[Rfam]
Record summary:
SAM (S-adenosyl methionine) riboswitch aptamer: a 120-nucleotide RNA from Mycobacterium adipatum. The family's consensus secondary structure is taken from published work. About the family: SAM-IV is a mRNA element that regulates gene expression via direct sensing of S-adenosylmethionine (SAM or AdoMet). SAM-IV riboswitches share conserved nucleotide positions with the previously described SAM-I riboswitches sequence analysis and molecular recognition experiments suggest that SAM-I and SAM-IV riboswitches share similar ligand binding sites, but have different scaffolds. NCBI's taxonomy places the organism under Bacteria, Bacillati, Actinomycetes, Mycobacteriaceae, Mycobacterium.
RNA sequence: GGUCAUGAGUGCCAGCAUCUAGCCCCGGCUUGCUGGCCGGCAACCCUCCAACCGCGGUGGGGUGCUCCGGGUGAAGACCAGGUUGAGCGGUCGAAUGGCGACUGCCGGCAAGCGCGGGUC
Numbered sequence: 001g002g003u004c005a006u007g008a009g010u011g012c013c014a015g016c017a018u019c020u021a022g023c024c025c026c027g028g029c030u031u032g033c034u035g036g037c038c039g040g041c042a043a044c045c046c047u048c049c050a051a052c053c054g055c056g057g058u059g060g061g062g063u064g065c066u067c068c069g070g071g072u073g074a075a076g077a078c079c080a081g082g083u084u085g086a087g088c089g090g091u092c093g094a095a096u097g098g099c100g101a102c103u104g105c106c107g108g109c110a111a112g113c114g115c116g117g118g119u120c
Stems, first nucleotide, its partner, number of pairs: 001079004009038001011037006021030002039066003044062003048057002082109004087105006